RNA: mir-9256 microRNA precursor family
Organism: Pipistrellus kuhlii
RNA sequence: AUACACACUGAGUGGCCAGAUUAUUAUGCAUUCAGAGAGCAUAAUAAUCUGGCCAUUUAGUGUGUAU
Numbered sequence: 001a002u003a004c005a006c007a008c009u010g011a012g013u014g015g016c017c018a019g020a021u022u023a024u025u026a027u028g029c030a031u032u033c034a035g036a037g038a039g040c041a042u043a044a045u046a047a048u049c050u051g052g053c054c055a056u057u058u059a060g061u062g063u064g065u066a067u
Base pairs, nucleotide, nucleotide: 004064005063006062007061008060009059010058011057012056013055014054015053016052017051019049020048021047022046023045024044025043026042027041028040